[Rfam]
Overview
The family of this 99-nucleotide RNA from Callithrix jacchus is "Y RNA". It scores 64 bits against the family's covariance model. It is annotated as a non-coding RNA gene. Taxonomically the source falls in Callithrix (Eukaryota, Teleostomi, Primates, Cebidae). From the family's description: Y RNAs are components of the Ro ribonucleoprotein particle (Ro RNP), in association with Ro60 and La proteins. The Y RNAs and Ro60 and La proteins are well conserved, but the function of the Ro RNP is not known. In humans the RNA component can be one of four small RNAs -- hY1, hY3, hY4 and hY5. These small RNAs are predicted to fold into a conserved secondary structure containing three stem structures. The largest of the four, hY1, contains an additional hairpin. This family includes a significant number of annotated pseudogenes and the model is expected to discriminate poorly between real and Y RNA related pseudogenes. The base pairs follow the family's consensus structure, which is taken from published work. A reference for the family is Dhahbi et al. (2013), "5'-YRNA fragments derived by processing of transcripts from specific YRNA genes and pseudogenes are abundant in human serum and plasma", Physiol Genomics.

RNA sequence: GGCUGGUCCGAGUGCAGUGGUGUUUACAACUGGAUCACAACCAGUUACAGAUUUCUUUGUCCCUUCUCAUUUCCCACUGCUUGACUUGACUAGGCUUAA
Numbered sequence: 001g002g003c004u005g006g007u008c009c010g011a012g013u014g015c016a017g018u019g020g021u022g023u024u025u026a027c028a029a030c031u032g033g034a035u036c037a038c039a040a041c042c043a044g045u046u047a048c049a050g051a052u053u054u055c056u057u058u059g060u061c062c063c064u065u066c067u068c069a070u071u072u073c074c075c076a077c078u079g080c081u082u083g084a085c086u087u088g089a090c091u092a093g094g095c096u097u098a099a
Stems, first nucleotide, its partner, number of pairs: 001095001003093006010087002016078005022073001029060002032057002